[Rfam]
RNA sequence: GGUGAUAAACGGCCGCCGCAAUAAACCCUUCGGACCCGGGGGCAGUACCCGGCGCCUCCACCGAAGCCCAUGGGCCUCUUGGCCUGGCGUGGGCUUCGGCGGGGGCGAAACAGGAUCGACGGGGGCGUAAAGGGCGAACUUUCACCCGGUAUUGUUCCGCCGUUAUCGGGCUUUUUUAUAGUUGCCAACGACAACUAUGCUCCGGUUGCUCAGGCCGCGUGA
Numbered sequence: 001g002g003u004g005a006u007a008a009a010c011g012g013c014c015g016c017c018g019c020a021a022u023a024a025a026c027c028c029u030u031c032g033g034a035c036c037c038g039g040g041g042g043c044a045g046u047a048c049c050c051g052g053c054g055c056c057u058c059c060a061c062c063g064a065a066g067c068c069c070a071u072g073g074g075c076c077u078c079u080u081g082g083c084c085u086g087g088c089g090u091g092g093g094c095u096u097c098g099g100c101g102g103g104g105g106c107g108a109a110a111c112a113g114g115a116u117c118g119a120c121g122g123g124g125g126c127g128u129a130a131a132g133g134g135c136g137a138a139c140u141u142u143c144a145c146c147c148g149g150u151a152u153u154g155u156u157c158c159g160c161c162g163u164u165a166u167c168g169g170g171c172u173u174u175u176u177u178a179u180a181g182u183u184g185c186c187a188a189c190g191a192c193a194a195c196u197a198u199g200c201u202c203c204g205g206u207u208g209c210u211c212a213g214g215c216c217g218c219g220u221g222a
Stems, first nucleotide, its partner, number of pairs: 001146005014136004026125003030122003036052005053107007147162004
The family of this 222-nucleotide sequence from Chenggangzhangella methanolivorans is "permuted transfer-messenger RNA". Rfam classes the family as a non-coding RNA gene. Lineage of the source: Bacteria > Alphaproteobacteria > Hyphomicrobiales > Methylopilaceae > Chenggangzhangella. It scores 134 bits against the family's covariance model.